[Rfam]
Nucleotides: 143
Stems, first nucleotide, its partner, number of pairs: 008103005013025004027073003031069007075098007127143002129139001131137002
Number, partner (000 for none) and nucleotide at each position: 001000c002000a003000a004000a005000a006000g007000u008103g009102c010101u011100g012099g013025c014024u015023g016022c017000c018000a019000u020000c021000u022016g023015c024014a025013g026000g027073a028072g029071u030000a031069u032068u033067a034066g035065g036064u037063g038000u039000u040000a041000c042000a043000u044000u045000u046000a047000c048000u049000c050000a051000u052000g053000u054000u055000u056000u057000u058000g059000a060000g061000u062000g063037c064036g065035c066034c067033u068032a069031a070000a071029a072028c073027u074000a075098g076097c077096g078095a079094a080093u081092g082000g083000u084000a085000a086000u087000c088000a089000a090000g091000a092081c093080a094079u095078u096077u097076g098075c099012c100011c101010g102009g103008c104000u105000a106000a107000a108000u109000u110000u111000c112000u113000g114000u115000c116000a117000c118000c119000c120000c121000a122000c123000u124000u125000u126000g127143a128142a129139u130000c131137g132136g133000c134000c135000u136132c137131c138000a139129a140000a141000u142128u143127u